[Rfam]
Shown here is a 351-nucleotide part of an RNA from Senegalimassilia anaerobia, a member of the family "Bacterial small subunit ribosomal RNA". On this family, see Yusupov et al., Science 2001: "Crystal structure of the ribosome at 5.5 A resolution". The source organism's lineage runs through Bacteria, Actinomycetota, Coriobacteriaceae, Senegalimassilia and Senegalimassilia anaerobia.
RNA sequence: GGCGUAAAGCGCGCGUAGGCGGAGCGCUAAGCGGGACCUCUAACCCGAGGGCUCAACCCCCGGCCGGGUCCCGAACUGGCGCUCUCGAGUGCGGUAGGGGAGAGCGGAAUUCCCGGUGUAGCGGUGGAAUGCGCAGAUAUCGGGAAGAACACCGACGGCGAAGGCAGCUCUCUGGGCCGAAACUGACGCUGAGGCGCGAAAGCUGGGGGAGCGAACAGGAUUAGAUACCCUGGUAGUCCCAGCCGUAAACGAUGGGCGCUAGGUGUGGGGGAUGAGAUCCCCCGUGCCGCAGCCAACGCAUUAAGCGCCCCGCCUGGGGAGUACGGCCGCAAGGCUAAAACUCAAAGGAAU
Numbered sequence: 001g002g003c004g005u006a007a008a009g010c011g012c013g014c015g016u017a018g019g020c021g022g023a024g025c026g027c028u029a030a031g032c033g034g035g036a037c038c039u040c041u042a043a044c045c046c047g048a049g050g051g052c053u054c055a056a057c058c059c060c061c062g063g064c065c066g067g068g069u070c071c072c073g074a075a076c077u078g079g080c081g082c083u084c085u086c087g088a089g090u091g092c093g094g095u096a097g098g099g100g101a102g103a104g105c106g107g108a109a110u111u112c113c114c115g116g117u118g119u120a121g122c123g124g125u126g127g128a129a130u131g132c133g134c135a136g137a138u139a140u141c142g143g144g145a146a147g148a149a150c151a152c153c154g155a156c157g158g159c160g161a162a163g164g165c166a167g168c169u170c171u172c173u174g175g176g177c178c179g180a181a182a183c184u185g186a187c188g189c190u191g192a193g194g195c196g197c198g199a200a201a202g203c204u205g206g207g208g209g210a211g212c213g214a215a216c217a218g219g220a221u222u223a224g225a226u227a228c229c230c231u232g233g234u235a236g237u238c239c240c241a242g243c244c245g246u247a248a249a250c251g252a253u254g255g256g257c258g259c260u261a262g263g264u265g266u267g268g269g270g271g272a273u274g275a276g277a278u279c280c281c282c283c284g285u286g287c288c289g290c291a292g293c294c295a296a297c298g299c300a301u302u303a304a305g306c307g308c309c310c311c312g313c314c315u316g317g318g319g320a321g322u323a324c325g326g327c328c329g330c331a332a333g334g335c336u337a338a339a340a341c342u343c344a345a346a347g348g349a350a351u
Stems, first nucleotide, its partner, number of pairs: 001314003009311001011197004016191001018190003022084007030077002032073007040066001045063003049059003088184003092179004099173007106150001110146008121132003158165002202243006211237002216232004254310006262288012292299002316343003325336004